This 241-nucleotide RNA sequence from Brassica carinata belongs to the Rfam family "TeloSII non coding RNA 30". It is annotated as a small RNA. The organism belongs to Brassica, within Eukaryota. From the family's description: Located downstream of the TeloSII elements. These elements have been shown to coordinate the expression of protein-coding gene related to ribosome biogenesis throughout the cell cycle in Arabidopsis. The match comes from Rfam's covariance-model search (113 bits). The family has 2 seed sequences and 20 matches in Rfam 15.1.

RNA sequence: UUCACCCUACAAACCUCGAGUUUCCUACUUCUUCUUCCUCCAUGCUGCUCACAUCAGCAUCAUCUUCUUCUCAUUACACGCAACAUAAAUCUCCAAGACCCACAACAGUCGACACUAUCAAGAUGUCACCACUUCACGAAGAUCCUCAGGAUUCAAGAGUUAUGAUCGAUUUCUUCUAGAUUUAACCCAUAUACCUCUCAUUCAUGCUUUUGUGUUGUGUGUGUUUUGAUAUUUUGGCCAC
Numbered sequence: 001u002u003c004a005c006c007c008u009a010c011a012a013a014c015c016u017c018g019a020g021u022u023u024c025c026u027a028c029u030u031c032u033u034c035u036u037c038c039u040c041c042a043u044g045c046u047g048c049u050c051a052c053a054u055c056a057g058c059a060u061c062a063u064c065u066u067c068u069u070c071u072c073a074u075u076a077c078a079c080g081c082a083a084c085a086u087a088a089a090u091c092u093c094c095a096a097g098a099c100c101c102a103c104a105a106c107a108g109u110c111g112a113c114a115c116u117a118u119c120a121a122g123a124u125g126u127c128a129c130c131a132c133u134u135c136a137c138g139a140a141g142a143u144c145c146u147c148a149g150g151a152u153u154c155a156a157g158a159g160u161u162a163u164g165a166u167c168g169a170u171u172u173c174u175u176c177u178a179g180a181u182u183u184a185a186c187c188c189a190u191a192u193a194c195c196u197c198u199c200a201u202u203c204a205u206g207c208u209u210u211u212g213u214g215u216u217g218u219g220u221g222u223g224u225u226u227u228g229a230u231a232u233u234u235u236g237g238c239c240a241c
Base pairs, nucleotide, nucleotide: 071237072236073235081228082227087126089124090123091122092121105118107116108115135214136213137212138211139210140208141207148196149195150194151190152189157183158182159181160180161179164176165175